Rfam assigns this 119-nucleotide RNA sequence from Oscillospiraceae bacterium Marseille-Q3528 to the family "FMN riboswitch aptamer (RFN element)". The match comes from Rfam's covariance-model search (113 bits). The RFN element is a highly conserved domain that is found frequently in the 5'-untranslated regions of prokaryotic mRNAs that encode for flavin mononucleotide (FMN) biosynthesis and transport proteins.
[Rfam]
RNA sequence: CAGGUUCUUCGGGGCAGGGUGCAAUUCCCGACCGGCGGUGACAGUCCGCGACUCGCGCAAGCGAUUGAUUUGGUGCAAUUCCAAAACCGACAGUACAGUCUGGAUGAGAGAAGAGCGUG
Numbered sequence: 001c002a003g004g005u006u007c008u009u010c011g012g013g014g015c016a017g018g019g020u021g022c023a024a025u026u027c028c029c030g031a032c033c034g035g036c037g038g039u040g041a042c043a044g045u046c047c048g049c050g051a052c053u054c055g056c057g058c059a060a061g062c063g064a065u066u067g068a069u070u071u072g073g074u075g076c077a078a079u080u081c082c083a084a085a086a087c088c089g090a091c092a093g094u095a096c097a098g099u100c101u102g103g104a105u106g107a108g109a110g111a112a113g114a115g116c117g118u119g
Stems, first nucleotide, its partner, number of pairs: 004116007017029003031099002033089002035049004044087002053064002069085005091102003

Record summary: The source organism's lineage runs through Bacteria, Bacillati, Bacillota, Eubacteriales and Oscillospiraceae. For this family Rfam cites "A conserved RNA structure element involved in the regulation of bacterial riboflavin synthesis genes" (Gelfand et al., Trends Genet, 1999). Pairs were carried over by alignment from the consensus structure, which is taken from published work.